RNA sequence: ACGUCGCCCGUGCGGCGCUCAUGGCCUCGAGCAGGCCAGGUGGGCAGGGGUGGUGCCGUGUCGGCGCAGCACCACCCCUGCUGA
Numbered sequence: 001a002c003g004u005c006g007c008c009c010g011u012g013c014g015g016c017g018c019u020c021a022u023g024g025c026c027u028c029g030a031g032c033a034g035g036c037c038a039g040g041u042g043g044g045c046a047g048g049g050g051u052g053g054u055g056c057c058g059u060g061u062c063g064g065c066g067c068a069g070c071a072c073c074a075c076c077c078c079u080g081c082u083g084a
Stems, first nucleotide, its partner, number of pairs: 002017006019042001022039001024037001025035003044081013058067003